[Rfam]
RNA sequence: GUUGAAGCUCCAUCUACAAAUGGGUAAGACCGGGUUUUAGUAUAUACGAGUUUUUUGAAAUAAAAAGAAGAAAUACCGCCCUCUUGUUCUAUCAAGAGGGCGGUAUUUCUUCUUUU
Numbered sequence: 001g002u003u004g005a006a007g008c009u010c011c012a013u014c015u016a017c018a019a020a021u022g023g024g025u026a027a028g029a030c031c032g033g034g035u036u037u038u039a040g041u042a043u044a045u046a047c048g049a050g051u052u053u054u055u056u057g058a059a060a061u062a063a064a065a066a067g068a069a070g071a072a073a074u075a076c077c078g079c080c081c082u083c084u085u086g087u088u089c090u091a092u093c094a095a096g097a098g099g100g101c102g103g104u105a106u107u108u109c110u111u112c113u114u115u116u
Stems, first nucleotide, its partner, number of pairs: 009024005064115013078101008
Shown here is a 116-nucleotide RNA from Angelica acutiloba, a member of the family "Plastid-psbA-1 3UTR RNA". Rfam's curators write: Plastid psbA-1 is a non-coding RNA (ncRNA) present in plastids. It was identified in inverted repeat sequences in the 3 prime untranslate region (3UTR) of photosystem II quinone-binding protein (psbA). Its Rfam clan is "Plastid-psbA 3UTR RNA clan". Rfam's curators put it in the seed alignment. The organism belongs to Angelica, within Eukaryota.